Description: This 136-nucleotide sequence from Myripristis murdjan belongs to the Rfam family "Small nucleolar RNA SNORA22". Gene Ontology terms of the family: nucleolus and RNA processing.
[Rfam]
Nucleotides: 136
Base pairs, nucleotide, nucleotide: 003058004057005056006055007054008053010052014047016043017042018041020039024034025033026032060075062073064071065070082121083120084119085114086113087112089109090108092106093105094104095103
Number, partner (000 for none) and nucleotide at each position: 001000u002000u003058g004057c005056a006055c007054a008053g009000a010052g011000a012000a013000c014047a015000c016043c017042c018041a019000a020039g021000g022000a023000u024034g025033c026032c027000a028000g029000u030000g031000u032026g033025g034024c035000u036000c037000c038000c039020c040000c041018u042017g043016g044000u045000c046000u047014u048000c049000a050000u051000a052010u053008c054007u055006g056005u057004g058003c059000c060075a061000c062073a063000g064071u065070a066000a067000c068000u069000c070065u071064g072000g073062u074000c075060u076000g077000u078000a079000c080000c081000u082121c083120u084119g085114c086113a087112u088000u089109a090108g091000a092106g093105g094104a095103g096000c097000a098000a099000u100000c101000u102000u103095c104094u105093c106092c107000c108090c109089u110000a111000c112087a113086u114085g115000u116000a117000u118000u119084c120083a121082g122000c123000g124000g125000a126000u127000c128000a129000g130000a131000a132000u133000a134000a135000a136000u
ACA22 is a member of the H/ACA class of snoRNA that guide the sites of modification of uridines to pseudouridines.